[Rfam]
RNA sequence: UGCAACUAUUUUAUGAUUAAGAAGCAAUUGCCUCGUGUAUAGAUUAUAUAUUAAUCU
Numbered sequence: 001u002g003c004a005a006c007u008a009u010u011u012u013a014u015g016a017u018u019a020a021g022a023a024g025c026a027a028u029u030g031c032c033u034c035g036u037g038u039a040u041a042g043a044u045u046a047u048a049u050a051u052u053a054a055u056c057u
Stems, first nucleotide, its partner, number of pairs: 018037002021034002024031002

This 57-nucleotide RNA from Lupinus albus belongs to the Rfam family "Plastid-rps18 3UTR RNA". The source organism's lineage runs through Eukaryota, Streptophyta, Streptophytina, Pentapetalae and Lupinus. Rfam's curators write: Plastid rps18 is a non-coding RNA (ncRNA) present in plastids. It was identified as a short stem-loop motif in the 3 prime untranslate region (3UTR) of rps18 gene. On this family, see Richter et al., Plant Commun 2023: "Retrograde signaling in plants: A critical review focusing on the GUN pathway and beyond". Rfam 15.1 lists 1,462 matches to the family in 409 species.